[Rfam]
RNA: mir-551 microRNA precursor family
Organism: Microcaecilia unicolor
RNA sequence: UGACCUUGGAAAUCAAACAUGGGUCGAGCCUGUUAAAGUGAGUGUGGGCGACCCAUGCUUGGUUUCAAAGGUUA
Numbered sequence: 001u002g003a004c005c006u007u008g009g010a011a012a013u014c015a016a017a018c019a020u021g022g023g024u025c026g027a028g029c030c031u032g033u034u035a036a037a038g039u040g041a042g043u044g045u046g047g048g049c050g051a052c053c054c055a056u057g058c059u060u061g062g063u064u065u066c067a068a069a070g071g072u073u074a
Stems, first nucleotide, its partner, number of pairs: 002073006009066006016059001021054004028049004